[Rfam]
The family of this 45-nucleotide RNA sequence from Lentivirus humimdef2 is "ribosomal frameshift site". A reference for the family is Hatfield et al. (1992), "Translational suppression in retroviral gene expression", Adv Virus Res. It is annotated as a frameshift element. Pairs were carried over by alignment from the consensus structure, which is taken from published work. Taxonomically the source falls in Lentivirus humimdef2 (Viruses, Riboviria, Artverviricota, Revtraviricetes).
RNA sequence: AUAAGCCCCCGGGGAAAGAAGCCUCGCAACUUCCCCGUGGCCCAA
Numbered sequence: 001a002u003a004a005g006c007c008c009c010c011g012g013g014g015a016a017a018g019a020a021g022c023c024u025c026g027c028a029a030c031u032u033c034c035c036c037g038u039g040g041c042c043c044a045a
Base pairs, nucleotide, nucleotide: 002044005041008039010037011036012035013034014033015032016031018030021027022026